[Rfam]
RNA sequence: CUCUGGUAACUAGAGAUCCCUCAGACCUCUUUAGUCUGUGGGGAAAAUCUCUAGCAGUGGCGCCCAACGUGGGGCACGAAAGCGAAAGUAAGACCAGAG
Numbered sequence: 001c002u003c004u005g006g007u008a009a010c011u012a013g014a015g016a017u018c019c020c021u022c023a024g025a026c027c028u029c030u031u032u033a034g035u036c037u038g039u040g041g042g043g044a045a046a047a048u049c050u051c052u053a054g055c056a057g058u059g060g061c062g063c064c065c066a067a068c069g070u071g072g073g074g075c076a077c078g079a080a081a082g083c084g085a086a087a088g089u090a091a092g093a094c095c096a097g098a099g
Stems, first nucleotide, its partner, number of pairs: 001099007010054008018043002020040001022038001024036003056089001058087001061084002063073003075082001
The family of this 99-nucleotide sequence from Lentivirus humimdef1 is "HIV primer binding site (PBS)". It is annotated as a cis-regulatory element. On this family, see Damgaard et al., J Mol Biol 2004: "RNA interactions in the 5' region of the HIV-1 genome". This family consists of several, structured HIV primer binding sites (PBSs). tRNA(3)(Lys) binds to the PBS to initiate reverse transcription.